This 101-nucleotide RNA from Asticcacaulis sp. AC466 belongs to the Rfam family "Manganese Mn2+ riboswitch aptamer (yybP-ykoY)". Taxonomically the source falls in Asticcacaulis (Bacteria, Pseudomonadati, Pseudomonadota, Caulobacterales).

[Rfam]
RNA sequence: GACACUGUCAUUGGGGAGUAGCCGCCGUCGUUCGCGACGGGCACGCGUCAACACACUUGGACCCGCAGGUUCAUGGCGCAGGCACUGACGAUUUCGUCAGC
Numbered sequence: 001g002a003c004a005c006u007g008u009c010a011u012u013g014g015g016g017a018g019u020a021g022c023c024g025c026c027g028u029c030g031u032u033c034g035c036g037a038c039g040g041g042c043a044c045g046c047g048u049c050a051a052c053a054c055a056c057u058u059g060g061a062c063c064c065g066c067a068g069g070u071u072c073a074u075g076g077c078g079c080a081g082g083c084a085c086u087g088a089c090g091a092u093u094u095c096g097u098c099a100g101c
Stems, first nucleotide, its partner, number of pairs: 026039003041083002045079006058073005085100006